[Rfam]
RNA sequence: GCUUACUUGAAAUUUUCAUGUAAGAAUUAGGUAAUUGGGAGAUUGUUUUUAGCUAAUAAACAAUCUCUUUUUUUUAUAAAUA
Numbered sequence: 001g002c003u004u005a006c007u008u009g010a011a012a013u014u015u016u017c018a019u020g021u022a023a024g025a026a027u028u029a030g031g032u033a034a035u036u037g038g039g040a041g042a043u044u045g046u047u048u049u050u051a052g053c054u055a056a057u058a059a060a061c062a063a064u065c066u067c068u069u070u071u072u073u074u075u076a077u078a079a080a081u082a
Stems, first nucleotide, its partner, number of pairs: 002024005009017003027079003033072002037069009046059002049056001

Shown here is an 82-nucleotide sequence from Prochlorococcus marinus, a member of the family "Cyanobacterial functional RNA 19". By type it is a small RNA. On this family, see Steglich et al., PLoS Genet 2008: "The challenge of regulation in a minimal photoautotroph: non-coding RNAs in Prochlorococcus". Taxonomically the source falls in Prochlorococcus marinus (Bacteria, Bacillati, Cyanophyceae, Prochlorococcus).